[Rfam]
RNA sequence: GGCUAAGGGUAGGGGUUUCUUUCGGCCUCCAGCAGAGUAGGAGGAGUUGUAGGCCGGCGGAAACUACUUGCCUUUACGC
Numbered sequence: 001g002g003c004u005a006a007g008g009g010u011a012g013g014g015g016u017u018u019c020u021u022u023c024g025g026c027c028u029c030c031a032g033c034a035g036a037g038u039a040g041g042a043g044g045a046g047u048u049g050u051a052g053g054c055c056g057g058c059g060g061a062a063a064c065u066a067c068u069u070g071c072c073u074u075u076a077c078g079c
Base pairs, nucleotide, nucleotide: 005075006074007073008072010070011069012068013067014065015064016063017062018061019060020059022057023056024055025054026053027052028051030049031048032047